[Rfam]
RNA sequence: GUGAGCAGACCGCAAGGUGAGCCCAUCACGUAACGGGAGUCAGCAGAGGGCAUAUUAAGUCCGCCGAAGGCGGAUCAAGGCC
Numbered sequence: 001g002u003g004a005g006c007a008g009a010c011c012g013c014a015a016g017g018u019g020a021g022c023c024c025a026u027c028a029c030g031u032a033a034c035g036g037g038a039g040u041c042a043g044c045a046g047a048g049g050g051c052a053u054a055u056u057a058a059g060u061c062c063g064c065c066g067a068a069g070g071c072g073g074a075u076c077a078a079g080g081c082c
Stems, first nucleotide, its partner, number of pairs: 001027001005022002009018003040047002049082003059075006

Rfam assigns this 82-nucleotide RNA sequence from Olavius sp. associated proteobacterium Delta 1 to the family "Group II catalytic intron D1-D4-1". Lineage of the source: Bacteria > delta/epsilon subdivisions > Deltaproteobacteria.